[Rfam]
RNA sequence: AGAGCACCUGUGAUGUUACAUCCAUACUCAUCCUUGCACUAUGAGGUUACCAGUGAAGAAAACAUUGGGGAAUUUUUAGUCUGAGGUGCUC
Numbered sequence: 001a002g003a004g005c006a007c008c009u010g011u012g013a014u015g016u017u018a019c020a021u022c023c024a025u026a027c028u029c030a031u032c033c034u035u036g037c038a039c040u041a042u043g044a045g046g047u048u049a050c051c052a053g054u055g056a057a058g059a060a061a062a063c064a065u066u067g068g069g070g071a072a073u074u075u076u077u078a079g080u081c082u083g084a085g086g087u088g089c090u091c
Stems, first nucleotide, its partner, number of pairs: 002091007

The family of this 91-nucleotide sequence from Oryza meyeriana is "Small nucleolar RNA snoR26". Rfam 15.1 lists 611 matches to the family in 220 species. Gene Ontology terms of the family: nucleolus and RNA processing. The match comes from Rfam's covariance-model search (87 bits). The base pairs follow the family's consensus structure, which was predicted with WAR. The organism belongs to Oryza meyeriana, within Eukaryota.